About this RNA: Shown here is a 47-nucleotide sequence from Microbacterium faecale, a member of the family "Guanidine-II riboswitch aptamer (mini-ykkC)". Pairs were carried over by alignment from the consensus structure, which is taken from published work.

[Rfam]
RNA sequence: CGGACGGGACGACCCGUUCGACUGCCUGCAUCUCGGGGACGACCCCG
Numbered sequence: 001c002g003g004a005c006g007g008g009a010c011g012a013c014c015c016g017u018u019c020g021a022c023u024g025c026c027u028g029c030a031u032c033u034c035g036g037g038g039a040c041g042a043c044c045c046c047g
Stems, first nucleotide, its partner, number of pairs: 001020008034047005
From the family's description: Simpler in structure and has fewer highly conserved nucleotide positions than the ykkC-yxkD leader. Despite this each of its two stem-loop structures directly bind free guanidine. Therefore, mini-ykkC RNA motif represents a distinct class of guanidine-sensing RNAs. Its crystal structure was also determined. Gene Ontology term of the family: regulation of gene expression.